Rfam assigns this 82-nucleotide sequence from Homo sapiens to the family "mir-617 microRNA precursor family". Rfam links the family to the GO terms miRNA-mediated post-transcriptional gene silencing and RISC complex. The base pairs follow the family's consensus structure, which was predicted with RNAalifold. The organism belongs to Homo, within Eukaryota. It is one of the family's seed sequences.

[Rfam]
RNA sequence: CAUCAUAAGGAGCCUAGACUUCCCAUUUGAAGGUGGCCAUUUCCUACCACCUUCAAAUGGUAAGUCCAGGCUCCUUCUGAUU
Numbered sequence: 001c002a003u004c005a006u007a008a009g010g011a012g013c014c015u016a017g018a019c020u021u022c023c024c025a026u027u028u029g030a031a032g033g034u035g036g037c038c039a040u041u042u043c044c045u046a047c048c049a050c051c052u053u054c055a056a057a058u059g060g061u062a063a064g065u066c067c068a069g070g071c072u073c074c075u076u077c078u079g080a081u082u
Stems, first nucleotide, its partner, number of pairs: 002081004007076009017066005023060014